Shown here is a 100-nucleotide sequence from Paralysiella testudinis, a member of the family "Glycine riboswitch aptamer". A reference for the family is Mandal et al. (2004), "A glycine-dependent riboswitch that uses cooperative binding to control gene expression", Science. It scores 55 bits against the family's covariance model.
[Rfam]
RNA sequence: CGCCUCAUUGCAGGAGAGCUUGCGCCGGAUUUUGUUUGGCGCAACACCGAAGGCGCAGAAACCCUUAAAUCGCUCAGGUAUCAAGGACUGCAAAGCGCAG
Numbered sequence: 001c002g003c004c005u006c007a008u009u010g011c012a013g014g015a016g017a018g019c020u021u022g023c024g025c026c027g028g029a030u031u032u033u034g035u036u037u038g039g040c041g042c043a044a045c046a047c048c049g050a051a052g053g054c055g056c057a058g059a060a061a062c063c064c065u066u067a068a069a070u071c072g073c074u075c076a077g078g079u080a081u082c083a084a085g086g087a088c089u090g091c092a093a094a095g096c097g098c099a100g
Stems, first nucleotide, its partner, number of pairs: 006095001008093006020044010046079003049075002053073003059066002